Rfam assigns this 278-nucleotide RNA sequence from Streptomyces regalis to the family "Streptomyces sRNA 4677". From the family's description: Located in the intergenic region between anti-sigma factor SCO4677 gene and a putative regulatory protein gene SCO4676. scr4677 expression requires the SCO4677 activity and scr4677 sRNA itself seem to affect the levels of the SCO4676-associated transcripts. A search with the family's covariance model found it, with a score of 84 bits.
[Rfam]
RNA sequence: UGGACCAGUGACCCGGACGUGCCCGACGCCAAAGACAAAGAACCGGGGAAAGAACCAAACCCGCCCCACCCAGCCCGUCGACCACCGCACCCCUGGUCACCCGGUCGAGUGAUCGCGUCGAAUUCCGCUGGCGUGUCGGCGAAUUGGUCAGGCAGCGUCGAUCUCGGCGAAAACAGCCGCACACCAACUCGACGAACAACCGCACACAGCAAACGGCCCCCGCCGGGACUGCAAUCCCGAGCGAGGGCCUGAUCACCCAGGAAGAAGAGACCUUCCCG
Number, nucleotide and partner (000 for none) at each position: 001u000002g000003g000004a000005c000006c000007a000008g256009u255010g254011a000012c000013c000014c000015g000016g079017a078018c077019g076020u000021g000022c000023c000024c000025g000026a000027c000028g000029c000030c000031a000032a000033a000034g000035a000036c000037a000038a000039a000040g000041a000042a000043c000044c000045g000046g000047g000048g000049a000050a000051a000052g000053a000054a000055c000056c000057a000058a000059a000060c000061c000062c000063g000064c000065c000066c000067c000068a000069c000070c000071c000072a000073g000074c000075c000076c019077g018078u017079c016080g000081a000082c000083c000084a000085c000086c000087g000088c000089a000090c000091c000092c000093c000094u000095g000096g000097u112098c111099a110100c109101c000102c107103g000104g000105u000106c000107g102108a000109g100110u099111g098112a097113u000114c000115g000116c000117g000118u000119c000120g000121a000122a000123u000124u000125c000126c000127g188128c000129u186130g185131g184132c000133g000134u000135g000136u000137c000138g000139g000140c000141g000142a000143a000144u000145u000146g000147g000148u000149c000150a000151g000152g000153c000154a000155g000156c000157g000158u000159c000160g000161a000162u000163c000164u000165c000166g000167g000168c000169g000170a000171a000172a000173a000174c000175a000176g000177c000178c000179g000180c000181a000182c000183a000184c131185c130186a129187a000188c127189u000190c000191g000192a000193c000194g000195a000196a000197c000198a000199a000200c000201c000202g000203c000204a000205c000206a000207c000208a000209g000210c000211a000212a000213a000214c000215g249216g248217c247218c246219c245220c000221c243222g242223c241224c000225g238226g237227g236228a235229c000230u000231g000232c000233a000234a000235u228236c227237c226238c225239g000240a000241g223242c222243g221244a000245g219246g218247g217248c216249c215250u000251g000252a000253u000254c010255a009256c008257c000258c000259a000260g276261g275262a274263a273264g272265a000266a000267g000268a000269g000270a000271c000272c264273u263274u262275c261276c260277c000278g000